[Rfam]
RNA: Guanidine-II riboswitch aptamer (mini-ykkC)
Organism: Legionella worsleiensis
RNA sequence: UCGCAGGGACGACCCUGUUAUGUUAUUAAUUCAUUGAGGACGGCCUCG
Numbered sequence: 001u002c003g004c005a006g007g008g009a010c011g012a013c014c015c016u017g018u019u020a021u022g023u024u025a026u027u028a029a030u031u032c033a034u035u036g037a038g039g040a041c042g043g044c045c046u047c048g
Stems, first nucleotide, its partner, number of pairs: 001020001003018006035048005